[Rfam]
RNA sequence: UUAGUCGGACAAAUGGUCGCGCCGUUUCAGACGAAAGGGAAACGGUGAGGAAAGUCCGGGCUUCACAGGGCAGGAUGCCGGAUAACGUCCGGUAGGGGCAACCCUCAAGCUAGUGCAACAGAAAUAUACCGCCACAUAAGUGGUAAGGGUGAAAUGGUAAGGUAAGAGCUUACCGCCUGGCUGGUAACAGGCAGGGCAUAUGUAAACCUCAUCCGAAGCAAGACCGAGAUGAAAACGAUAGAUCGGCCCGAUCUGUUUUCAGGUGGGUCGCUGGAGCUUGCUGGUAACAGUAAGUCGAGAUAGAUGACCAUUCAACGACAUAACCCGGCUUAUCGUCUGGCUAAGCAU
Numbered sequence: 001u002u003a004g005u006c007g008g009a010c011a012a013a014u015g016g017u018c019g020c021g022c023c024g025u026u027u028c029a030g031a032c033g034a035a036a037g038g039g040a041a042a043c044g045g046u047g048a049g050g051a052a053a054g055u056c057c058g059g060g061c062u063u064c065a066c067a068g069g070g071c072a073g074g075a076u077g078c079c080g081g082a083u084a085a086c087g088u089c090c091g092g093u094a095g096g097g098g099c100a101a102c103c104c105u106c107a108a109g110c111u112a113g114u115g116c117a118a119c120a121g122a123a124a125u126a127u128a129c130c131g132c133c134a135c136a137u138a139a140g141u142g143g144u145a146a147g148g149g150u151g152a153a154a155u156g157g158u159a160a161g162g163u164a165a166g167a168g169c170u171u172a173c174c175g176c177c178u179g180g181c182u183g184g185u186a187a188c189a190g191g192c193a194g195g196g197c198a199u200a201u202g203u204a205a206a207c208c209u210c211a212u213c214c215g216a217a218g219c220a221a222g223a224c225c226g227a228g229a230u231g232a233a234a235a236c237g238a239u240a241g242a243u244c245g246g247c248c249c250g251a252u253c254u255g256u257u258u259u260c261a262g263g264u265g266g267g268u269c270g271c272u273g274g275a276g277c278u279u280g281c282u283g284g285u286a287a288c289a290g291u292a293a294g295u296c297g298a299g300a301u302a303g304a305u306g307a308c309c310a311u312u313c314a315a316c317g318a319c320a321u322a323a324c325c326c327g328g329c330u331u332a333u334c335g336u337c338u339g340g341c342u343a344a345g346c347a348u
Stems, first nucleotide, its partner, number of pairs: 001344010011333001012312007020047009052331003056328005061218004068249004073214005078092005093107001094105004108209002113207002115203003129148002131144005156174006175197001176195004181190003222269004231260006240254005276295008
A member of the RNA family "Bacterial RNase P class A" from Firmicutes bacterium AF12-30, 348 nucleotides long. The match comes from Rfam's covariance-model search (307 bits). Pairs were carried over by alignment from the consensus structure, which is taken from published work. About the family: Ribonuclease P (RNase P) is a ubiquitous endoribonuclease, found in archaea, bacteria and eukarya as well as chloroplasts and mitochondria.